[Rfam]
The record is a 195-nucleotide sequence from Anopheles gambiae, which matches "drz-agam-2-2 ribozyme" in Rfam. The organism belongs to Anopheles gambiae, within Eukaryota.
RNA sequence: ACGAAGUUCCUAGUUAUUCAUGCAAUUGGAUCCGAAGCCCUCUGAGGGUUAAUAUAGGCUCUUCGAUCCAACUUCUAUUUCGACACAUCCUCGUUGUCCAGAGUGGUAACAUGUGCCAGCACAUAUUCAAACUUGGGUACACGGGCUAGAUCCAAUCCCUUGGGCGGAUGGUGGCAUAUGGCGAACCAGACGGAG
Dot-bracket structure: .............[[.........((((((.((.......................))...)))))).....((((..(.(...(((.{{....)))..]]...}}...((((((((..(....((((....((((((...........)))))).((....)).)))))..))))))))........)).))))